[Rfam]
This 80-nucleotide sequence from Plutella xylostella belongs to the Rfam family "mir-981 microRNA precursor family". The literature on the family includes a 2010 paper in BMC Genomics by Legeai et al., "Bioinformatic prediction, deep sequencing of microRNAs and expression analysis during phenotypic plasticity in the pea aphid, Acyrthosiphon pisum". Rfam links the family to the GO terms miRNA-mediated post-transcriptional gene silencing and RISC complex.

RNA sequence: UCGCACAUGAUUCGGGUUUCGCGGCGAUGUAACCGUGACUACUAUUGGUUCGUUGUCGACGAAACCUGCACGAUGUGCGG
Numbered sequence: 001u002c003g004c005a006c007a008u009g010a011u012u013c014g015g016g017u018u019u020c021g022c023g024g025c026g027a028u029g030u031a032a033c034c035g036u037g038a039c040u041a042c043u044a045u046u047g048g049u050u051c052g053u054u055g056u057c058g059a060c061g062a063a064a065c066c067u068g069c070a071c072g073a074u075g076u077g078c079g080g
Stems, first nucleotide, its partner, number of pairs: 001080006013068009031050004